RNA sequence: UAGAGUUUGGAACUAAUAAAGACUAAGAAGAUUGGCUCAGGAACAAA
Numbered sequence: 001u002a003g004a005g006u007u008u009g010g011a012a013c014u015a016a017u018a019a020a021g022a023c024u025a026a027g028a029a030g031a032u033u034g035g036c037u038c039a040g041g042a043a044c045a046a047a
Stems, first nucleotide, its partner, number of pairs: 007041002010038002013035005
A member of the RNA family "Plastid-rpl16 group II-D1 intron" from Olea europaea, 47 nucleotides long. Plastid-rpl16 is a non-coding RNA (ncRNA) recognised in plastids. Lineage of the source: Eukaryota > Magnoliopsida > lamiids > Olea > Olea europaea. Pairs were carried over by alignment from the consensus structure, which was predicted with LocARNA. Rfam 15.1 lists 1,446 matches to the family in 693 species.